The record is a 52-nucleotide sequence from Marivivens niveibacter, which matches "serC leader" in Rfam. On this family, see Corbino et al., Genome Biol 2005: "Evidence for a second class of S-adenosylmethionine riboswitches and other regulatory RNA motifs in alpha-proteobacteria". Lineage of the source: Bacteria > Pseudomonadati > Pseudomonadota > Alphaproteobacteria > Marivivens. A search with the family's covariance model found it, with a score of 62 bits. It is annotated as a cis-regulatory leader. About the family: This family is a putative regulatory RNA structure that is found upstream of the serC-serA operon in some alpha-proteobacteria. The final stem of the structure overlaps the ribosome binding site of the serC reading frame. Gene Ontology term of the family: regulation of gene expression.
[Rfam]
RNA sequence: CGGUGGGACACCCUACCCCAACGUAGGGCAUAUAUCUGAGAGGGUAACACCU
Number, nucleotide and partner (000 for none) at each position: 001c000002g000003g000004u000005g000006g000007g000008a000009c000010a000011c028012c027013c026014u025015a024016c023017c000018c000019c000020a000021a000022c000023g016024u015025a014026g013027g012028g011029c000030a000031u000032a000033u046034a045035u044036c043037u042038g000039a000040g000041a000042g037043g036044g035045u034046a033047a000048c000049a000050c000051c000052u000